[Rfam]
RNA sequence: UUGAAGCUCCAUCUACAAAUAGAUAAGGAUUUAGUUUUAGUGUGCAGGAGUUUUUGGAAAUAAAGGAGCAAUAACCACUUUCUUGUUCUAGUAAGAGCGUUGGUAUUGCUCCUUU
Numbered sequence: 001u002u003g004a005a006g007c008u009c010c011a012u013c014u015a016c017a018a019a020u021a022g023a024u025a026a027g028g029a030u031u032u033a034g035u036u037u038u039a040g041u042g043u044g045c046a047g048g049a050g051u052u053u054u055u056g057g058a059a060a061u062a063a064a065g066g067a068g069c070a071a072u073a074a075c076c077a078c079u080u081u082c083u084u085g086u087u088c089u090a091g092u093a094a095g096a097g098c099g100u101u102g103g104u105a106u107u108g109c110u111c112c113u114u115u
Stems, first nucleotide, its partner, number of pairs: 008023002011020002062115012077100002080097005